[Rfam]
RNA: MIR7993 microRNA precursor family
RNA sequence: UUAAGUUAACCACAUAAAAUAUAUUUCAUCUCCUUUAAUUCUAUGCAUUUGCCUUAAUAAGCCGUAAAAGCCCAAGAUGUUUUCUACAAGAGGUUGAUGCAUUUAAUUAAAGGAGACAACAUAUUUUAUGUAGUUAACUUAACU
Numbered sequence: 001u002u003a004a005g006u007u008a009a010c011c012a013c014a015u016a017a018a019a020u021a022u023a024u025u026u027c028a029u030c031u032c033c034u035u036u037a038a039u040u041c042u043a044u045g046c047a048u049u050u051g052c053c054u055u056a057a058u059a060a061g062c063c064g065u066a067a068a069a070g071c072c073c074a075a076g077a078u079g080u081u082u083u084c085u086a087c088a089a090g091a092g093g094u095u096g097a098u099g100c101a102u103u104u105a106a107u108u109a110a111a112g113g114a115g116a117c118a119a120c121a122u123a124u125u126u127u128a129u130g131u132a133g134u135u136a137a138c139u140u141a142a143c144u
Stems, first nucleotide, its partner, number of pairs: 001142010012131011024119002030115011043102007051094004